RNA: Bacterial RNase P class A
Nucleotides: 371
Base pairs, nucleotide, nucleotide: 001367002366003365004364005363006362007361008360009359011356012321013320014319015318016317017316018315020034021033022032023031024030039354040353041352043351044350045349046348047347048207049206050205051204055255056254057253058252061202062201063200064199065079066078067077068076069075080094081092082091083090084089095198096197100196101195102192103191104190117138118137119134120133121132122131123130124129146164147163149161150160151159165187166185167184168183169182170181171180172179173178211278212277213276214275221268222267223266224265225264226263246260247259248258249257250256285304286303287302288301290299291298292297
Number, partner (000 for none) and nucleotide at each position: 001367a002366a003365a004364g005363a006362u007361g008360g009359g010000c011356a012321g013320g014319u015318g016317g017316c018315c019000g020034c021033c022032c023031g024030g025000u026000c027000u028000a029000u030024c031023c032022g033021g034020g035000a036000g037000g038000a039354a040353a041352g042000u043351c044350c045349g046348a047347g048207c049206a050205c051204c052000a053000u054000a055255g056254g057253g058252c059000a060000a061202g062201g063200c064199g065079c066078u067077g068076g069075g070000u071000a072000a073000c074000u075069c076068c077067c078066a079065g080094u081092c082091c083090c084089g085000g086000u087000g088000a089084c090083g091082g092081g093000a094080a095198g096197g097000a098000a099000a100196g101195u102192g103191c104190c105000a106000c107000a108000g109000a110000a111000a112000a113000a114000a115000a116000a117138c118137c119134g120133c121132c122131c123130g124129a125000g126000a127000a128000a129124u130123c131122g132121g133120g134119u135000a136000a137118g138117g139000g140000u141000g142000a143000a144000a145000a146164g147163g148000c149161g150160a151159g152000g153000u154000a155000a156000g157000a158000g159151c160150u161149c162000a163147c164146c165187g166185c167184g168183u169182u170181u171180c172179u173178g174000g175000u176000g177000a178173c179172a180171g181170a182169a183168a184167c185166g186000g187165c188000a189000u190104g191103g192102u193000a194000a195101a196100c197096c198095c199064c200063g201062c202061c203000c204051g205050g206049u207048g208000c209000a210000a211278g212277a213276c214275c215000a216000a217000a218000u219000a220000g221268g222267g223266g224265g225264g226263c227000u228000u229000u230000u231000c232000c233000g234000u235000u236000g237000u238000u239000c240000g241000g242000a243000a244000a245000g246260g247259a248258a249257u250256c251000g252058g253057c254056c255055c256250g257249g258248u259247u260246c261000g262000u263226g264225c265224c266223c267222c268221c269000g270000g271000g272000u273000a274000a275214g276213g277212u278211c279000g280000c281000u282000u283000g284000a285304g286303g287302c288301c289000u290299c291298g292297g293000g294000u295000a296000a297292c298291c299290g300000u301288g302287g303286u304285c305000c306000c307000a308000g309000a310000g311000u312000a313000a314000u315018g316017g317016u318015c319014g320013c321012c322000a323000c324000u325000g326000c327000c328000g329000g330000a331000a332000g333000a334000u335000g336000g337000c338000a339000g340000g341000a342000c343000a344000g345000a346000a347047c348046u349045c350044g351043g352041c353040u354039u355000a356011u357000g358000u359009c360008c361007u362006g363005u364004c365003u366002u367001u368000c369000g370000c371000a